The family of this 127-nucleotide RNA from Trifolium subterraneum is "Small nucleolar RNA snoR77".
The family's RNA type in Rfam is H/ACA-box small nucleolar RNA.
NCBI's taxonomy places the organism under Eukaryota, Streptophyta, Magnoliopsida, fabids, Trifolium.
A search with the family's covariance model found it, with a score of 122 bits.
The literature on the family includes a 2002 paper in Curr Biol by Marker et al., "Experimental RNomics: identification of 140 candidates for small non-messenger RNAs in the plant Arabidopsis thaliana".

[Rfam]
RNA sequence: AGGCAGCCUACUUGCUAAGAUUAAAUGGCAUGAAAGGUGUUUAACUACUCGUAAAUCAAAUUCUUUUGCUCUUCAGAUUUGCUGAGAUUUUUUUCUCUGAAGCUGGUCUAGUAAGCUCAAGUACAUU
Number, nucleotide and partner (000 for none) at each position: 001a000002g041003g040004c039005a038006g000007c037008c036009u034010a000011c032012u000013u030014g029015c028016u027017a026018a000019g000020a000021u000022u000023a000024a000025a000026u017027g016028g015029c014030a013031u000032g011033a000034a009035a000036g008037g007038u005039g004040u003041u002042u000043a000044a000045c000046u000047a000048c000049u000050c000051g000052u000053a000054a000055a000056u000057c000058a000059a000060a000061u000062u000063c121064u120065u119066u000067u000068g116069c115070u114071c000072u000073u000074c000075a109076g108077a107078u106079u105080u000081g103082c102083u101084g000085a000086g095087a094088u000089u000090u000091u000092u000093u000094u087095c086096u000097c000098u000099g000100a000101a083102g082103c081104u000105g079106g078107u077108c076109u075110a000111g000112u000113a000114a070115g069116c068117u000118c000119a065120a064121g063122u000123a000124c000125a000126u000127u000